[Rfam]
RNA: L20-Deltaproteobacteria ribosomal protein leader
RNA sequence: UGCUGUGAACCGUGAGGAAAUCGUCUCCCCUUGCGGAUCCUGCGAAAUACCCAACAAAGGAG
Numbered sequence: 001u002g003c004u005g006u007g008a009a010c011c012g013u014g015a016g017g018a019a020a021u022c023g024u025c026u027c028c029c030c031u032u033g034c035g036g037a038u039c040c041u042g043c044g045a046a047a048u049a050c051c052c053a054a055c056a057a058a059g060g061a062g
Base pairs, nucleotide, nucleotide: 003042005040007039008038010036011035012034013033014032015031016030017029